Rfam assigns this 314-nucleotide RNA from Marine Group I thaumarchaeote SCGC AAA799-P11 to the family "Archaeal signal recognition particle RNA".
The family is grouped with related families in Rfam's "SRP clan".
The source organism's lineage runs through Archaea, Thermoproteati, Nitrososphaerota and Marine Group I.
The family's consensus secondary structure is taken from published work.
The match comes from Rfam's covariance-model search (116 bits).
It is annotated as a non-coding RNA gene.
Its family is annotated with SRP-dependent cotranslational protein targeting to membrane, signal sequence recognition and signal recognition particle, plasma membrane targeting in the Gene Ontology.
Nucleotides: 314
Stems, first nucleotide, its partner, number of pairs: 001314009012062004016034007037058004042053001068305007076297001079294001083291003088286006095279004101271001104268009114258001116256001121253005127244005133238002135235004140230003144179002147176002149173002151170001153168006183226005192219005201210003
Number, partner (000 for none) and nucleotide at each position: 001314g002313u003312a004311g005310c006309a007308g008307g009306u010000a011000g012062g013061a014060u015059c016034g017033g018032g019031g020030u021029g022028c023000c024000a025000g026000c027000c028022g029021u030020g031019c032018c033017c034016u035000g036000u037058u038057c039056u040055g041000a042053a043000a044000c045000c046000g047000g048000c049000u050000a051000u052000a053042u054000g055040c056039a057038g058037a059015g060014a061013u062012c063000a064000g065000u066000a067000a068305c069304u070303g071302u072301u073300g074299g075000g076297u077000a078000a079294a080000u081000c082000u083291c084290u085289a086000g087000a088286u089285g090284a091283g092282u093281a094000a095279u096278u097277c098276c099000c100000g101271c102000u103000u104268g105267g106266u107265g108264u109263g110262c111261g112260g113000a114258a115000a116256u117000g118000a119000a120000a121253u122252c123251a124250c125249g126000c127244c128243g129242a130241g131240g132000c133238g134237g135235g136234u137233g138232g139000u140230u141229g142228c143000a144179g145178g146000a147176c148175u149173a150172g151170a152000a153168u154167u155166a156165u157164c158163c159000g160000a161000a162000g163158g164157g165156a166155u167154g168153a169000c170151u171000u172150c173149u174000a175148a176147g177000a178145c179144c180000g181000a182000a183226c184225c185224a186223u187222c188000g189000a190000a191000a192219g193218g194217g195216a196215u197000g198000a199000g200000g201210u202209c203208c204000g205000g206000g207000a208203g209202g210201g211000a212000g213000c214000a215196a216195u217194c218193c219192u220000a221000a222187g223186g224185u225184g226183g227000a228142g229141c230140a231000u232138c233137c234136a235135c236000g237134c238133u239000u240131c241130c242129u243128c244127g245000u246000c247000a248000a249125c250124g251123u252122g253121g254000c255000g256116g257000a258114u259000c260112u261111u262110g263109u264108a265107c266106g267105c268104c269000u270000u271101g272000a273000a274000a275000u276098g277097g278096g279095g280000c281093u282092a283091u284090u285089c286088g287000c288000c289085u290084a291083g292000a293000c294079u295000g296000g297076a298000a299074c300073c301072a302071a303070c304069a305068g306009a307008u308007c309006u310005g311004c312003u313002a314001c